[Rfam]
RNA sequence: UGUCGUCUGGUCUCUACUAAGGAUCGUCCGGCACGUACCGCCGGUGGAGGUUCAAUAU
Numbered sequence: 001u002g003u004c005g006u007c008u009g010g011u012c013u014c015u016a017c018u019a020a021g022g023a024u025c026g027u028c029c030g031g032c033a034c035g036u037a038c039c040g041c042c043g044g045u046g047g048a049g050g051u052u053c054a055a056u057a058u
Base pairs, nucleotide, nucleotide: 010051011050012049013048014047015046016045028044029043030042031041032040
RNA: msiK RNA
Organism: Actinomyces sp. S6-Spd3